This 93-nucleotide RNA from Striga hermonthica belongs to the Rfam family "Small nucleolar RNA U54". The organism belongs to Striga, within Eukaryota. The family's RNA type in Rfam is C/D-box small nucleolar RNA. About the family: U54 is a C/D box small nucleolar RNA, which acts as a methylation guide for 18S ribosomal RNA in plants. Its family is annotated with RNA processing and nucleolus in the Gene Ontology. Rfam 15.1 lists 614 matches to the family in 206 species. A search with the family's covariance model found it, with a score of 48 bits.

RNA sequence: UGCUCUAUGAUAAUCAGCCUUAAUUACAGGCAAUAUACGCUAUGCCGAUUAUAUGCAUGAGUAGAAAAUUUUGUUAUGAAAAUUAUGAGAGCA
Numbered sequence: 001u002g003c004u005c006u007a008u009g010a011u012a013a014u015c016a017g018c019c020u021u022a023a024u025u026a027c028a029g030g031c032a033a034u035a036u037a038c039g040c041u042a043u044g045c046c047g048a049u050u051a052u053a054u055g056c057a058u059g060a061g062u063a064g065a066a067a068a069u070u071u072u073g074u075u076a077u078g079a080a081a082a083u084u085a086u087g088a089g090a091g092c093a
Stems, first nucleotide, its partner, number of pairs: 001093005
Dot-bracket structure: (((((...................................................................................)))))